Source information: Shown here is an 84-nucleotide RNA sequence from Colobus angolensis, a member of the family "mir-548 microRNA precursor family". Pairs were carried over by alignment from the consensus structure, which was predicted with WAR. Taxonomically the source falls in Colobus angolensis (Eukaryota, Metazoa, Craniata, Amniota). For this family Rfam cites "Ultra-high throughput sequencing-based small RNA discovery and discrete statistical biomarker analysis in a collection of cervical tumours and matched controls" (Witten et al., BMC Biol, 2010). Gene Ontology terms of the family: miRNA-mediated post-transcriptional gene silencing and RISC complex.

[Rfam]
Nucleotides: 084
Stems, first nucleotide, its partner, number of pairs: 001084038040045001
Number, partner (000 for none) and nucleotide at each position: 001084u002083a003082u004081u005080a006079g007078g008077u009076u010075g011074g012073u013072g014071c015070a016069a017068a018067a019066g020065u021064a022063a023062u024061c025060g026059u027058g028057g029056u030055u031054u032053u033052u034051g035050c036049c037048a038047u039000g040045u041000u042000a043000a044000a045040a046000g047038a048037u049036g050035g051034c052033a053032a054031a055030a056029a057028c058027c059026a060025u061024g062023a063022u064021u065020a066019c067018u068017u069016u070015u071014g072013c073012a074011u075010c076009a077008a078007c079006c080005u081004a082003a083002u084001a